[Rfam]
RNA sequence: UAUUGCGAUGACGACUCCGGAAAAAUUCAAGCUCAACAGACCGUAUUGCAGGCCUCGAUGCAAUCGGGGUUUGCAUGGCGACUAUCCCGCUGAACCGAGCAAAA
Numbered sequence: 001u002a003u004u005g006c007g008a009u010g011a012c013g014a015c016u017c018c019g020g021a022a023a024a025a026u027u028c029a030a031g032c033u034c035a036a037c038a039g040a041c042c043g044u045a046u047u048g049c050a051g052g053c054c055u056c057g058a059u060g061c062a063a064u065c066g067g068g069g070u071u072u073g074c075a076u077g078g079c080g081a082c083u084a085u086c087c088c089g090c091u092g093a094a095c096c097g098a099g100c101a102a103a104a
Stems, first nucleotide, its partner, number of pairs: 001104001003102004